[Rfam]
The family of this 77-nucleotide RNA from Parnassius apollo is "Mammalian CPEB3 ribozyme".
RNA sequence: AUUGUUAGAGUGGGGGUAAUUGUAGAAGCGUGCUCGUCGCGACCCCUGCCAGCCCUUUUCAAGGCUGCAAUUCUACA
Numbered sequence: 001a002u003u004g005u006u007a008g009a010g011u012g013g014g015g016g017u018a019a020u021u022g023u024a025g026a027a028g029c030g031u032g033c034u035c036g037u038c039g040c041g042a043c044c045c046c047u048g049c050c051a052g053c054c055c056u057u058u059u060c061a062a063g064g065c066u067g068c069a070a071u072u073c074u075a076c077a
Base pairs, nucleotide, nucleotide: 013046014045015044016043017042021077022076023075024074025073026072027071028040029039030038050067051066052065053064054063056061
Dot-bracket structure: ............[[[[[...((((((((((.......))).]]]]]...(((((.(....).)))))...)))))))

The source organism's lineage runs through Eukaryota, Metazoa, Arthropoda, Obtectomera and Parnassius.